[Rfam]
A member of the RNA family "Y RNA" from Propithecus coquereli, 98 nucleotides long. Lineage of the source: Eukaryota > Eumetazoa > Chordata > Amniota > Propithecus. The family's consensus secondary structure is taken from published work. Y RNAs are components of the Ro ribonucleoprotein particle (Ro RNP), in association with Ro60 and La proteins. The Y RNAs and Ro60 and La proteins are well conserved, but the function of the Ro RNP is not known. In humans the RNA component can be one of four small RNAs -- hY1, hY3, hY4 and hY5. These small RNAs are predicted to fold into a conserved secondary structure containing three stem structures. The largest of the four, hY1, contains an additional hairpin. This family includes a significant number of annotated pseudogenes and the model is expected to discriminate poorly between real and Y RNA related pseudogenes.

RNA sequence: GGCUGGUCCGAAGGUAGUGAGUUAUCUCACUUGAUUGUUCACAGUCACCCUGUUCUACUACUUUCCCCCUCCUCACUACUGCACUUGACUAGUCUUAA
Numbered sequence: 001g002g003c004u005g006g007u008c009c010g011a012a013g014g015u016a017g018u019g020a021g022u023u024a025u026c027u028c029a030c031u032u033g034a035u036u037g038u039u040c041a042c043a044g045u046c047a048c049c050c051u052g053u054u055c056u057a058c059u060a061c062u063u064u065c066c067c068c069c070u071c072c073u074c075a076c077u078a079c080u081g082c083a084c085u086u087g088a089c090u091a092g093u094c095u096u097a098a
Stems, first nucleotide, its partner, number of pairs: 001094008010086002014082002016077006032060002037055001